The record is a 90-nucleotide RNA sequence from Polaribacter sp. MED152, which matches "Flavo-1 RNA" in Rfam. It is annotated as a small RNA.

[Rfam]
RNA sequence: GUUUAGCCCUGAUUGUAAUGGCAUCCUUUUAAGGUAAACAGAUGAAAAUCUGCUUUAUCUAAAAAGAUAAAAUGGAAAGCAGGAAAUAGC
Dot-bracket structure: ........(((.((...((...(((...((..((((((...............))))))...)).)))...))...)).)))........
Pairs were carried over by alignment from the consensus structure, which is taken from published work. Taxonomically the source falls in Polaribacter (Bacteria, Pseudomonadati, Flavobacteriia, Flavobacteriaceae).